[Rfam]
RNA sequence: UAGAACUUGUGGGAUAGGGGAUGAUCUUGUCGACCGUUUCUCGGUCCCCUGCUCCGUUGAGCUGGCAAGGCGCCUAUAGGUUCUA
Numbered sequence: 001u002a003g004a005a006c007u008u009g010u011g012g013g014a015u016a017g018g019g020g021a022u023g024a025u026c027u028u029g030u031c032g033a034c035c036g037u038u039u040c041u042c043g044g045u046c047c048c049c050u051g052c053u054c055c056g057u058u059g060a061g062c063u064g065g066c067a068a069g070g071c072g073c074c075u076a077u078a079g080g081u082u083c084u085a
Base pairs, nucleotide, nucleotide: 001085002084003083004082005081006080009077010076011075012074013073017048018047021063023071024050025070026069027068028067029066030065031064032046033045034044035043036042051062052061053060054059

Description
The family of this 85-nucleotide sequence from Umbravirus pisi is "Panicum mosaic virus cap-independent translation enhancer RNA (PTE)". The family's RNA type in Rfam is cis-regulatory element. About the family: The Panicum mosaic virus translation element (PTE) is a cap-independent translation enhancer in Viral RNAs. The base pairs follow the family's consensus structure. A reference for the family is Simon and Miller (2013), "3' Cap-Independent Translation Enhancers of Plant Viruses", Annu. Rev. Microbiol. Lineage of the source: Viruses > Tolucaviricetes > Tolivirales > Calvusvirinae > Umbravirus pisi. Rfam's curators put it in the seed alignment.